Eukaryotic small subunit ribosomal RNA: a 593-nucleotide part of an RNA from Smittium mucronatum.
The literature on the family includes a 2001 paper in Science by Yusupov et al., "Crystal structure of the ribosome at 5.5 A resolution".
The family's consensus secondary structure is taken from published work.
[Rfam]
RNA sequence: AAAGUUGUUGCAGUUAAAAAGCUCGUAGUUGAACUUUAGACCUUUUCGGGAGGCUGGCAAAAAAUUAAGGGAAAAGUUGGUUUUUUAAAUCUUCUUUUUUCUUUAUGCCACCUUUCGGGGUCUUACCCAAUUCUGGGUUCGAAUUCGUAGGAUUUCUUACUUUUUCAAAGCCCAGAACUUUUUUACCUUGAAAAAAUUAGAGUGUUCAAAGCAGGCAGAAUUAUUUCGCCUGAAUAUAUUAGCAUGGAAUAAUAAAAUAGGACUUUGGUUUUAUUUUGUUGGUUUCUGAAACCAAGGUAAUGAUUAAUAGGGACAGUUGGGGGCAUUUGUAUGGCACUGUCAGUGGUGAAAUACUUGAACCAGUGCCAGACAAACUGAUGCGAAAGCGUCUGCCAAGGAUGUUUUCAUUAAUCAAGAACGAAAGUUAGGGGAUCGAAGACGAUUAGAUACCGUCGUAGUCUUAACCAUAAACGAUGCCAACUCGGGAUCAGACAAUGUUAAAUUUUUUUAAUGACUUGUUUGGCACCGUAUGAGAAAUCAAAGUUUUUGGGUUCCGGGGGGAGUAUGGUCGCAAGGCUGAAACUUAAAGGAAU
Numbered sequence: 001a002a003a004g005u006u007g008u009u010g011c012a013g014u015u016a017a018a019a020a021g022c023u024c025g026u027a028g029u030u031g032a033a034c035u036u037u038a039g040a041c042c043u044u045u046u047c048g049g050g051a052g053g054c055u056g057g058c059a060a061a062a063a064a065u066u067a068a069g070g071g072a073a074a075a076g077u078u079g080g081u082u083u084u085u086u087a088a089a090u091c092u093u094c095u096u097u098u099u100u101c102u103u104u105a106u107g108c109c110a111c112c113u114u115u116c117g118g119g120g121u122c123u124u125a126c127c128c129a130a131u132u133c134u135g136g137g138u139u140c141g142a143a144u145u146c147g148u149a150g151g152a153u154u155u156c157u158u159a160c161u162u163u164u165u166c167a168a169a170g171c172c173c174a175g176a177a178c179u180u181u182u183u184u185a186c187c188u189u190g191a192a193a194a195a196a197u198u199a200g201a202g203u204g205u206u207c208a209a210a211g212c213a214g215g216c217a218g219a220a221u222u223a224u225u226u227c228g229c230c231u232g233a234a235u236a237u238a239u240u241a242g243c244a245u246g247g248a249a250u251a252a253u254a255a256a257a258u259a260g261g262a263c264u265u266u267g268g269u270u271u272u273a274u275u276u277u278g279u280u281g282g283u284u285u286c287u288g289a290a291a292c293c294a295a296g297g298u299a300a301u302g303a304u305u306a307a308u309a310g311g312g313a314c315a316g317u318u319g320g321g322g323g324c325a326u327u328u329g330u331a332u333g334g335c336a337c338u339g340u341c342a343g344u345g346g347u348g349a350a351a352u353a354c355u356u357g358a359a360c361c362a363g364u365g366c367c368a369g370a371c372a373a374a375c376u377g378a379u380g381c382g383a384a385a386g387c388g389u390c391u392g393c394c395a396a397g398g399a400u401g402u403u404u405u406c407a408u409u410a411a412u413c414a415a416g417a418a419c420g421a422a423a424g425u426u427a428g429g430g431g432a433u434c435g436a437a438g439a440c441g442a443u444u445a446g447a448u449a450c451c452g453u454c455g456u457a458g459u460c461u462u463a464a465c466c467a468u469a470a471a472c473g474a475u476g477c478c479a480a481c482u483c484g485g486g487a488u489c490a491g492a493c494a495a496u497g498u499u500a501a502a503u504u505u506u507u508u509u510a511a512u513g514a515c516u517u518g519u520u521u522g523g524c525a526c527c528g529u530a531u532g533a534g535a536a537a538u539c540a541a542a543g544u545u546u547u548u549g550g551g552u553u554c555c556g557g558g559g560g561g562a563g564u565a566u567g568g569u570c571g572c573a574a575g576g577c578u579g580a581a582a583c584u585u586a587a588a589g590g591a592a593u
Base pairs, nucleotide, nucleotide: 011556013554019553021419023417024416028412029411030410310406311405312404313403314401315400317398318397322394323393324392325391328372329371332368333367334366335365336364337363338362339361343354344353345352380387381386424465425464426463427462428461429460434458438454439453440452441451476552477551478550479545480544481543483528484527485526488523489522490521491520492519493518494517495516497515498514499513532539533538558585559584560583567578568577569576570575